[Rfam]
RNA sequence: GGGCCGCGCACGGGAGAGUGCCGGGGUUUCGACCCUGGCCGCCGAAGGAGCAACCGCCCCGGAAUCUCUCAGGCAAUCGGGACCGCGCGCGACCU
Numbered sequence: 001g002g003g004c005c006g007c008g009c010a011c012g013g014g015a016g017a018g019u020g021c022c023g024g025g026g027u028u029u030c031g032a033c034c035c036u037g038g039c040c041g042c043c044g045a046a047g048g049a050g051c052a053a054c055c056g057c058c059c060c061g062g063a064a065u066c067u068c069u070c071a072g073g074c075a076a077u078c079g080g081g082a083c084c085g086c087g088c089g090c091g092a093c094c095u
Stems, first nucleotide, its partner, number of pairs: 006090004011085003020039006041074003044070002048068003054062002

Source information: Rfam assigns this 95-nucleotide RNA from Stakelama sediminis to the family "Glycine riboswitch aptamer". The organism belongs to Stakelama, within Bacteria.